[Rfam]
The record is an 80-nucleotide RNA from Flavobacterium psychrophilum, which matches "Flavo-1 RNA" in Rfam. The family's RNA type in Rfam is small RNA. Rfam 15.1 lists 7,497 matches to the family in 411 species.
RNA sequence: CCCUAGCCCCGAUUGAAACGGAAAUCCUUUUUAUUUUUCCUUUAAAAAUAAAAAGAUUGCAGUGUAAAGCGGGAAAUAGC
Numbered sequence: 001c002c003c004u005a006g007c008c009c010c011g012a013u014u015g016a017a018a019c020g021g022a023a024a025u026c027c028u029u030u031u032u033a034u035u036u037u038u039c040c041u042u043u044a045a046a047a048a049u050a051a052a053a054a055g056a057u058u059g060c061a062g063u064g065u066a067a068a069g070c071g072g073g074a075a076a077u078a079g080c
Base pairs, nucleotide, nucleotide: 009072010071011070013068014067018063019062023058024057025056026055029053030052031051032050033049034048035047036046037045038044